A member of the RNA family "mir-9/mir-79 microRNA precursor family" from Darwinula stevensoni, 80 nucleotides long. Pairs were carried over by alignment from the consensus structure, which was predicted with RNAalifold. Lineage of the source: Eukaryota > Opisthokonta > Metazoa > Protostomia > Darwinula. A reference for the family is Lau et al. (2001), "An abundant class of tiny RNAs with probable regulatory roles in Caenorhabditis elegans", Science. A search with the family's covariance model found it, with a score of 60 bits.
RNA sequence: UCAGUCUUCCCUUUGGUGAUUUGGCUGUAUGGGUGUAAUGAAAGUGAGCCAUAAAGCUAGACUACCAAAGGAGAGCCUGG
Numbered sequence: 001u002c003a004g005u006c007u008u009c010c011c012u013u014u015g016g017u018g019a020u021u022u023g024g025c026u027g028u029a030u031g032g033g034u035g036u037a038a039u040g041a042a043a044g045u046g047a048g049c050c051a052u053a054a055a056g057c058u059a060g061a062c063u064a065c066c067a068a069a070g071g072a073g074a075g076c077c078u079g080g
Stems, first nucleotide, its partner, number of pairs: 001080004007074002010071009020061007028053005